[Rfam]
RNA sequence: GGAAUCUACUCAGUAAGGAUAAUGGCAUACUGACAGGAAGGCUGGCUGCACGAAGGGCGACCGACGCGCAGAAGCCCAGCCCGACGAAGGAAUGAGCCAAACUAAAGUGAAGUCCCGUAUGUACGCCUCGAUACUUCCAAUCGAAAGAUAACCCGAUGGCCAAGCGAAUCAUAAUAGCCGAAGCCCACGCGGACGCGCCGAAACCAUUACGCGGUGCGCCUGACGGGUCGGGGUAUAGGGACA
Numbered sequence: 001g002g003a004a005u006c007u008a009c010u011c012a013g014u015a016a017g018g019a020u021a022a023u024g025g026c027a028u029a030c031u032g033a034c035a036g037g038a039a040g041g042c043u044g045g046c047u048g049c050a051c052g053a054a055g056g057g058c059g060a061c062c063g064a065c066g067c068g069c070a071g072a073a074g075c076c077c078a079g080c081c082c083g084a085c086g087a088a089g090g091a092a093u094g095a096g097c098c099a100a101a102c103u104a105a106a107g108u109g110a111a112g113u114c115c116c117g118u119a120u121g122u123a124c125g126c127c128u129c130g131a132u133a134c135u136u137c138c139a140a141u142c143g144a145a146a147g148a149u150a151a152c153c154c155g156a157u158g159g160c161c162a163a164g165c166g167a168a169u170c171a172u173a174a175u176a177g178c179c180g181a182a183g184c185c186c187a188c189g190c191g192g193a194c195g196c197g198c199c200g201a202a203a204c205c206a207u208u209a210c211g212c213g214g215u216g217c218g219c220c221u222g223a224c225g226g227g228u229c230g231g232g233g234u235a236u237a238g239g240g241a242c243a
Stems, first nucleotide, its partner, number of pairs: 011032005025210001034086001040081004044076002046071004051066002055062002122235001125234006151228005157223001158185003164178002190222003194218006